Rfam assigns this 49-nucleotide sequence from Dinoroseobacter shibae to the family "SAM/SAH riboswitch aptamer". For this family Rfam cites "The structure of the SAM/SAH-binding riboswitch" (Weickhmann et al., Nucleic Acids Res, 2019). Rfam's curators put it in the seed alignment.
RNA sequence: CCGACGCUGCAACGGCUUCCUGGCGCAGCGGUCGCUAUUCAAUGGAGCA
Numbered sequence: 001c002c003g004a005c006g007c008u009g010c011a012a013c014g015g016c017u018u019c020c021u022g023g024c025g026c027a028g029c030g031g032u033c034g035c036u037a038u039u040c041a042a043u044g045g046a047g048c049a
Stems, first nucleotide, its partner, number of pairs: 004032002006029005013022002015048003019045002